RNA: mir-30 microRNA precursor family
Organism: Ateles geoffroyi
RNA sequence: CAGUUCAUGUAAACAUCCUACACUCAGCUGUAAUACAUGGAUUGGCUGAGAGGUGGAUGUUUACUUCAGCUGA
Numbered sequence: 001c002a003g004u005u006c007a008u009g010u011a012a013a014c015a016u017c018c019u020a021c022a023c024u025c026a027g028c029u030g031u032a033a034u035a036c037a038u039g040g041a042u043u044g045g046c047u048g049a050g051a052g053g054u055g056g057a058u059g060u061u062u063a064c065u066u067c068a069g070c071u072g073a
Stems, first nucleotide, its partner, number of pairs: 001072005007066001009064010020054002023050007